[Rfam]
RNA: Pseudomonas sRNA P24
RNA sequence: UUGCGCAAGUAAUGUUUUAAUCCGCAAUAUUAGCAAUCCUCUGCCUUCGCCUCAGGCCUAUUCUUUUAACCAGAAUCACUGCCCGGACACAGCGUCCAGCGCGACUCGCCGAAUCAGGCCAGUCGCGGCCUCCCACCCAACAGGGUGUGCCAGGCCCCCGGGCUACAUACUGUCCAGAAGACGGCAUGAGGUGAGCCAACGUCAAAAGCGUUGCGCCAGGGCGAAGUAUCUCAAGGGGGCCAUUUGGUCCCCU
Number, nucleotide and partner (000 for none) at each position: 001u012002u011003g010004c009005g000006c000007a000008a000009g004010u003011a002012a001013u000014g000015u000016u000017u000018u000019a000020a000021u000022c000023c000024g000025c000026a000027a000028u000029a000030u000031u000032a000033g000034c000035a000036a000037u000038c000039c000040u000041c000042u000043g057044c056045c055046u054047u000048c000049g000050c000051c000052u000053c000054a046055g045056g044057c043058c000059u000060a000061u000062u000063c000064u000065u000066u000067u000068a000069a000070c000071c000072a000073g000074a000075a000076u194077c193078a192079c191080u190081g163082c162083c161084c160085g097086g096087a095088c094089a000090c000091a000092g000093c000094g088095u087096c086097c085098a000099g000100c000101g126102c125103g124104a123105c122106u000107c000108g119109c118110c117111g000112a000113a000114u000115c000116a000117g110118g109119c108120c000121a000122g105123u104124c103125g102126c101127g156128g155129c154130c153131u152132c000133c000134c147135a146136c145137c144138c143139a000140a000141c000142a000143g138144g137145g136146u135147g134148u000149g000150c000151c000152a131153g130154g129155c128156c127157c000158c000159c000160g084161g083162g082163c081164u000165a000166c188167a187168u186169a000170c184171u183172g182173u181174c180175c000176a000177g000178a000179a000180g174181a173182c172183g171184g170185c000186a168187u167188g166189a000190g080191g079192u078193g077194a076195g216196c215197c213198a212199a211200c210201g209202u208203c000204a000205a000206a000207a000208g202209c201210g200211u199212u198213g197214c000215g196216c195217c000218a000219g000220g000221g000222c000223g000224a000225a000226g000227u000228a000229u000230c000231u000232c000233a000234a000235g253236g252237g251238g249239g248240c247241c246242a000243u000244u000245u000246g241247g240248u239249c238250c000251c237252c236253u235